RNA sequence: UGGGAGGAUCUGUUAAGCUCAGGAGGGAUAGCGCCAUGAGCUGAUGAUAAGUUGAUGUUUGAUGGGUUAAUCUCAACAUAAUCAAUCUAGUCAUUAGUGGCGCUAUCUAUCCUGAGUUCUAUAGGUUCUCCUU
Numbered sequence: 001u002g003g004g005a006g007g008a009u010c011u012g013u014u015a016a017g018c019u020c021a022g023g024a025g026g027g028a029u030a031g032c033g034c035c036a037u038g039a040g041c042u043g044a045u046g047a048u049a050a051g052u053u054g055a056u057g058u059u060u061g062a063u064g065g066g067u068u069a070a071u072c073u074c075a076a077c078a079u080a081a082u083c084a085a086u087c088u089a090g091u092c093a094u095u096a097g098u099g100g101c102g103c104u105a106u107c108u109a110u111c112c113u114g115a116g117u118u119c120u121a122u123a124g125g126u127u128c129u130c131c132u133u
Base pairs, nucleotide, nucleotide: 010124016118017117018116019115020114021113022112023111024110026108027107028106029105030104031103032102033101034100035099036098037097
RNA: MIR390 microRNA precursor family
Organism: Populus trichocarpa